[Rfam]
RNA sequence: AUGCCUUAAACUUAUGAGUAAGUAAAAUAACAAUUCGGGGUGACACCUGAGUCCUCACUGCUAAUGUGAGAUGAAUUUGUGAGUGGAUACAGGUUGCCCCUCAGGUGAUCCGCCUACUUGGUUGGAUGCCUGGGAAUCAUGAUCUGCCCG
Numbered sequence: 001a002u003g004c005c006u007u008a009a010a011c012u013u014a015u016g017a018g019u020a021a022g023u024a025a026a027a028u029a030a031c032a033a034u035u036c037g038g039g040g041u042g043a044c045a046c047c048u049g050a051g052u053c054c055u056c057a058c059u060g061c062u063a064a065u066g067u068g069a070g071a072u073g074a075a076u077u078u079g080u081g082a083g084u085g086g087a088u089a090c091a092g093g094u095u096g097c098c099c100c101u102c103a104g105g106u107g108a109u110c111c112g113c114c115u116a117c118u119u120g121g122u123u124g125g126a127u128g129c130c131u132g133g134g135a136a137u138c139a140u141g142a143u144c145u146g147c148c149c150g
Stems, first nucleotide, its partner, number of pairs: 005022004033052007054070005084150003088146001091145006100134002103131005109125002112122002
The record is a 150-nucleotide RNA from Neomonachus schauinslandi, which matches "U12 minor spliceosomal RNA" in Rfam. It scores 108 bits against the family's covariance model. Taxonomically the source falls in Neomonachus (Eukaryota, Deuterostomia, Laurasiatheria, Monachini). By type it is a spliceosomal small nuclear RNA.